[Rfam]
RNA sequence: UGGCCAAUGAUGACGUGACCACUGCACAAUCUGAGUUCUGGAAACCAGGGGAUGGUGUGUGUUCUGAGAAAAGAUUGAAACUG
Dot-bracket structure: .((..................................((((...))))................................)).

Annotation:
The family of this 83-nucleotide RNA from Carlito syrichta is "small Cajal body-specific RNA 18". Pairs were carried over by alignment from the consensus structure, which was predicted with PFOLD. NCBI's taxonomy places the organism under Eukaryota, Bilateria, Mammalia, Theria, Carlito. It is annotated as a small Cajal body RNA. A search with the family's covariance model found it, with a score of 85 bits.